[Rfam]
Record summary
The family of this 67-nucleotide RNA from Panagrolaimus superbus is "mir-72 microRNA precursor family". The organism belongs to Panagrolaimus, within Eukaryota.
RNA sequence: AUGAGGCAAGAUGUUGGCAUAGCUGAUUUGCAUUUAAAUCGUCAGCAAUGCUACAUAUGGCCAUGUC
Numbered sequence: 001a002u003g004a005g006g007c008a009a010g011a012u013g014u015u016g017g018c019a020u021a022g023c024u025g026a027u028u029u030g031c032a033u034u035u036a037a038a039u040c041g042u043c044a045g046c047a048a049u050g051c052u053a054c055a056u057a058u059g060g061c062c063a064u065g066u067c
Base pairs, nucleotide, nucleotide: 005062006061007060011056012055013054014053016052017051018050022046023045024044025043026042
Description
The match comes from Rfam's covariance-model search (66 bits). Its Rfam clan is "mir-31 microRNA precursor family".